[Rfam]
Nucleotides: 065
Stems, first nucleotide, its partner, number of pairs: 018060004026052004030047003
Number, partner (000 for none) and nucleotide at each position: 001000a002000u003000g004000a005000c006000c007000g008000u009000g010000a011000g012000g013000a014000g015000u016000u017000g018060a019059g020058a021057u022000a023000c024000u025000c026052c027051g028050c029049a030047g031046u032045g033000g034000a035000a036000a037000c038000a039000a040000g041000g042000a043000a044000a045032c046031a047030c048000u049029u050028g051027c052026g053000a054000c055000u056000g057021a058020u059019c060018u061000c062000a063000c064000a065000a
The family of this 65-nucleotide RNA sequence is "Cyano-1 RNA". Pairs were carried over by alignment from the consensus structure, which is taken from published work. By type it is a small RNA.